The record is a 93-nucleotide RNA from Ageratina adenophora, which matches "Plastid-rps12 3UTR RNA" in Rfam.
The family's RNA type in Rfam is cis-regulatory element.
Plastid rpl20 is a non-coding RNA (ncRNA) recognised in plastids.
Lineage of the source: Eukaryota > Euphyllophyta > eudicotyledons > Asterales > Ageratina.
Rfam 15.1 lists 1,710 matches to the family in 1,426 species.
Rfam's curators put it in the seed alignment.
[Rfam]
RNA sequence: GGUUUCUGUUGGUGUAAAUCCACUCACCUCAAUUCAAGAUGAGAAGCAAUUCUCCGUUGGUAGCAAAUGGUUAUCCAUUAAGCGGAGAAAUUC
Numbered sequence: 001g002g003u004u005u006c007u008g009u010u011g012g013u014g015u016a017a018a019u020c021c022a023c024u025c026a027c028c029u030c031a032a033u034u035c036a037a038g039a040u041g042a043g044a045a046g047c048a049a050u051u052c053u054c055c056g057u058u059g060g061u062a063g064c065a066a067a068u069g070g071u072u073a074u075c076c077a078u079u080a081a082g083c084g085g086a087g088a089a090a091u092u093c
Stems, first nucleotide, its partner, number of pairs: 010022003052087004056078002059075006